[Rfam]
RNA sequence: ACCUUCUUUACCAAAAGCGCCAUGCUAAAAUCGGCAGGUCUGAGCCUUUCGGUUUAGCCCUGCCGAUCAUGCUAGUAUGGUACGUCUCAAAGAAGGAAGAGCAAAGAAAAAAAAAUACGCAGCAUCGGAAAAGAGACCGGGAGGGACCUCUUUCUUAAUGUCCCGUGUCCUGCGUCUCAAGAUUCUGCGCUACACUU
Numbered sequence: 001a002c003c004u005u006c007u008u009u010a011c012c013a014a015a016a017g018c019g020c021c022a023u024g025c026u027a028a029a030a031u032c033g034g035c036a037g038g039u040c041u042g043a044g045c046c047u048u049u050c051g052g053u054u055u056a057g058c059c060c061u062g063c064c065g066a067u068c069a070u071g072c073u074a075g076u077a078u079g080g081u082a083c084g085u086c087u088c089a090a091a092g093a094a095g096g097a098a099g100a101g102c103a104a105a106g107a108a109a110a111a112a113a114a115a116u117a118c119g120c121a122g123c124a125u126c127g128g129a130a131a132a133g134a135g136a137c138c139g140g141g142a143g144g145g146a147c148c149u150c151u152u153u154c155u156u157a158a159u160g161u162c163c164c165g166u167g168u169c170c171u172g173c174g175u176c177u178c179a180a181g182a183u184u185c186u187g188c189g190c191u192a193c194a195c196u197u
Base pairs, nucleotide, nucleotide: 020080021079023077024076025075026074027073030070031069033067037060038059040057041056042055043054044053045052046051118189119188120187121186122185124183139168141166143164144163145162146161

Rfam assigns this 197-nucleotide RNA sequence from Clarias magur to the family "Small nucleolar RNA SNORA81". The match comes from Rfam's covariance-model search (78 bits). The organism belongs to Clarias, within Eukaryota. The literature on the family includes a 2005 paper in Nucleic Acids Res by Gu et al., "A novel experimental approach for systematic identification of box H/ACA snoRNAs from eukaryotes". By type it is an H/ACA-box small nucleolar RNA.